Source information
The record is a 74-nucleotide RNA sequence from Falsiroseomonas stagni, which matches "tRNA" in Rfam. The match comes from Rfam's covariance-model search (68 bits).
[Rfam]
RNA sequence: GCACCCGUAGCUCAGCUGGAUAGAGCAUCGGAUUUCUACUCCGUAGGUCGGGGGUUCGAAUCCCUCCGGGUGCG
Numbered sequence: 001g002c003a004c005c006c007g008u009a010g011c012u013c014a015g016c017u018g019g020a021u022a023g024a025g026c027a028u029c030g031g032a033u034u035u036c037u038a039c040u041c042c043g044u045a046g047g048u049c050g051g052g053g054g055u056u057c058g059a060a061u062c063c064c065u066c067c068g069g070g071u072g073c074g
Base pairs, nucleotide, nucleotide: 001073002072003071004070005069006068007067010026011025012024013023029043030042031041032040050066051065052064053063054062